[Rfam]
RNA sequence: AGGCUUUUUUUCCGCCGCAUCUGCCUCUAUAUUGAGCGGGCCGGAUUCGUCCGGCUAUGGCGAUAAACGCGGUCGUAAUAAGCCGAUCGGACCCGGGGGCAGUACCCGGCGCCUCCACCACAUGCCCGUGUAGCGCACAGCUCGGCGCGGGCAUCUGAUGGGGGCGAACUAGGAUCGACGAAGGUGUAAAGGGCUUAGCUUUCGCUCGGCAUGGUUCCGCCGUCAUCGGGCCAUUCAGAAUAGUUGCCAAUGACAACUAUGCUGAGGCUGCUCUCGCUGCGUAAUGCAGUGCGAUUAGCCUGAACUUGAAGCCCUUACCCUUAGCCGGGUAAGGCGCGGUCCGGAGGGCACCGGGCAACAGAAGCCCUCCAAU
Numbered sequence: 001a002g003g004c005u006u007u008u009u010u011u012c013c014g015c016c017g018c019a020u021c022u023g024c025c026u027c028u029a030u031a032u033u034g035a036g037c038g039g040g041c042c043g044g045a046u047u048c049g050u051c052c053g054g055c056u057a058u059g060g061c062g063a064u065a066a067a068c069g070c071g072g073u074c075g076u077a078a079u080a081a082g083c084c085g086a087u088c089g090g091a092c093c094c095g096g097g098g099g100c101a102g103u104a105c106c107c108g109g110c111g112c113c114u115c116c117a118c119c120a121c122a123u124g125c126c127c128g129u130g131u132a133g134c135g136c137a138c139a140g141c142u143c144g145g146c147g148c149g150g151g152c153a154u155c156u157g158a159u160g161g162g163g164g165c166g167a168a169c170u171a172g173g174a175u176c177g178a179c180g181a182a183g184g185u186g187u188a189a190a191g192g193g194c195u196u197a198g199c200u201u202u203c204g205c206u207c208g209g210c211a212u213g214g215u216u217c218c219g220c221c222g223u224c225a226u227c228g229g230g231c232c233a234u235u236c237a238g239a240a241u242a243g244u245u246g247c248c249a250a251u252g253a254c255a256a257c258u259a260u261g262c263u264g265a266g267g268c269u270g271c272u273c274u275c276g277c278u279g280c281g282u283a284a285u286g287c288a289g290u291g292c293g294a295u296u297a298g299c300c301u302g303a304a305c306u307u308g309a310a311g312c313c314c315u316u317a318c319c320c321u322u323a324g325c326c327g328g329g330u331a332a333g334g335c336g337c338g339g340u341c342c343g344g345a346g347g348g349c350a351c352c353g354g355g356c357a358a359c360a361g362a363a364g365c366c367c368u369c370c371a372a373u
Stems, first nucleotide, its partner, number of pairs: 040055005059206005069199002071195004083184002087181003093109005110166007207222004212233003216230003337353004343370006
A member of the RNA family "Alphaproteobacteria transfer-messenger RNA" from Hyphomicrobium album, 373 nucleotides long. The family's consensus secondary structure is taken from published work. A search with the family's covariance model found it, with a score of 302 bits. Rfam's curators write: Bacterial tmRNA, also known as 10Sa RNA or SsrA, is named for its dual tRNA and mRNA-like properties. Its role is to liberate the mRNA from a stalled ribosome. To accomplish this part of the tmRNA is used as a reading frame that ends in a translation stop signal.